The family of this 83-nucleotide sequence from Arcanobacterium haemolyticum is "ZMP/ZTP riboswitch aptamer (pfl RNA motif)". Taxonomically the source falls in Arcanobacterium haemolyticum (Bacteria, Actinomycetota, Actinomycetales, Arcanobacterium). The match comes from Rfam's covariance-model search (40 bits). The family's consensus secondary structure is taken from published work.
Nucleotides: 083
Base pairs, nucleotide, nucleotide: 004054005053006052007051008050009049010048011047012046015043017071018070019069020068021067027040028039029038030037063075064074
Number, partner (000 for none) and nucleotide at each position: 001000u002000a003000a004054c005053g006052c007051u008050u009049u010048g011047g012046u013000g014000a015043c016000u017071g018070a019069c020068g021067g022000u023000u024000u025000g026000a027040g028039u029038u030037g031000a032000a033000u034000u035000a036000a037030c038029a039028a040027c041000a042000u043015g044000a045000a046012g047011c048010c049009a050008a051007a052006g053005u054004g055000a056000g057000a058000a059000a060000a061000c062000a063075u064074c065000a066000u067021c068020c069019g070018u071017c072000u073000g074064g075063g076000c077000a078000c079000a080000c081000u082000c083000u